RNA sequence: GCUACACGAGGAUAGAGUAAGUCGCCGCGAGGCGGCUGGCCGGGAAAUUCGAC
Numbered sequence: 001g002c003u004a005c006a007c008g009a010g011g012a013u014a015g016a017g018u019a020a021g022u023c024g025c026c027g028c029g030a031g032g033c034g035g036c037u038g039g040c041c042g043g044g045a046a047a048u049u050c051g052a053c
Stems, first nucleotide, its partner, number of pairs: 020037007